About this RNA
The family of this 91-nucleotide sequence from Neogale vison is "mir-1388 microRNA precursor family". The source organism's lineage runs through Eukaryota, Bilateria, Musteloidea, Mustelidae and Neogale. On this family, see Jin et al., BMC Mol Biol 2009: "Characterization of bovine miRNAs by sequencing and bioinformatics analysis". The family has 12 seed sequences and 600 matches in Rfam 15.1. Its family is annotated with RISC complex and miRNA-mediated post-transcriptional gene silencing in the Gene Ontology.

[Rfam]
RNA sequence: CCCUGGGUAGUGCCUCCGGGACCGGCCGGCCUGAGAAUGGUGUCUCCAGGGUCAAUCUCAGGUUCGUCAGUCCGUGAGGUGCUACCCCUUC
Numbered sequence: 001c002c003c004u005g006g007g008u009a010g011u012g013c014c015u016c017c018g019g020g021a022c023c024g025g026c027c028g029g030c031c032u033g034a035g036a037a038u039g040g041u042g043u044c045u046c047c048a049g050g051g052u053c054a055a056u057c058u059c060a061g062g063u064u065c066g067u068c069a070g071u072c073c074g075u076g077a078g079g080u081g082c083u084a085c086c087c088c089u090u091c
Base pairs, nucleotide, nucleotide: 005088006087007086008084009083010082011081012080013079014078015077016076019073020072022070024068026066028064029063030062031061032060033059034058035057036056038054039053